[Rfam]
RNA sequence: CUUCCCAUUUGACUACCACUUUUUCACUUAAUAGAUUUAGUGGCUAUGCUUAUGGGAUAAAAUAUAGCUGCCAUGGUCUGAUGGAGAAAAAGUGUCUGGGUCUUUUUUUCCUAUAUGAAAUGGCAGAACAAUCUAGCU
Numbered sequence: 001c002u003u004c005c006c007a008u009u010u011g012a013c014u015a016c017c018a019c020u021u022u023u024u025c026a027c028u029u030a031a032u033a034g035a036u037u038u039a040g041u042g043g044c045u046a047u048g049c050u051u052a053u054g055g056g057a058u059a060a061a062a063u064a065u066a067g068c069u070g071c072c073a074u075g076g077u078c079u080g081a082u083g084g085a086g087a088a089a090a091a092g093u094g095u096c097u098g099g100g101u102c103u104u105u106u107u108u109u110c111c112u113a114u115a116u117g118a119a120a121u122g123g124c125a126g127a128a129c130a131a132u133c134u135a136g137c138u
Stems, first nucleotide, its partner, number of pairs: 004056004016043004070124004087112001088109003

The family of this 138-nucleotide RNA sequence from Monodelphis domestica is "Small nucleolar RNA SNORA29". Rfam 15.1 lists 960 matches to the family in 621 species. By type it is an H/ACA-box small nucleolar RNA. The sequence is in the family's curated seed alignment. The source organism's lineage runs through Eukaryota, Opisthokonta, Eumetazoa, Dipnotetrapodomorpha and Monodelphis. About the family: ACA29 is a member of the H/ACA class of snoRNA that guide the sites of modification of uridines to pseudouridines. The literature on the family includes a 2001 paper in EMBO J by Huttenhofer et al., "RNomics: an experimental approach that identifies 201 candidates for novel, small, non-messenger RNAs in mouse".